[Rfam]
RNA sequence: UUUUUAUAAGGGCACAGCUAAGGAAACUUAGCGUCGCAAAGCUAGAGGGGCUAAGGGAGACCCUAUGCCAGCCAGCUGCCAUU
Numbered sequence: 001u002u003u004u005u006a007u008a009a010g011g012g013c014a015c016a017g018c019u020a021a022g023g024a025a026a027c028u029u030a031g032c033g034u035c036g037c038a039a040a041g042c043u044a045g046a047g048g049g050g051c052u053a054a055g056g057g058a059g060a061c062c063c064u065a066u067g068c069c070a071g072c073c074a075g076c077u078g079c080c081a082u083u
Stems, first nucleotide, its partner, number of pairs: 012037002017032006040077004047073002049069003056063002
Source information: Rfam assigns this 83-nucleotide RNA sequence from Anoxybacteroides amylolyticum to the family "c-di-GMP-I riboswitch aptamer". GEMM was predicted in a large-scale screen for bacterial structured RNA regulatory elements. The literature on the family includes a 2007 paper in Nucleic Acids Res by Weinberg et al., "Identification of 22 candidate structured RNAs in bacteria using the CMfinder comparative genomics pipeline". The organism belongs to Anoxybacteroides, within Bacteria. The family's consensus secondary structure is taken from published work.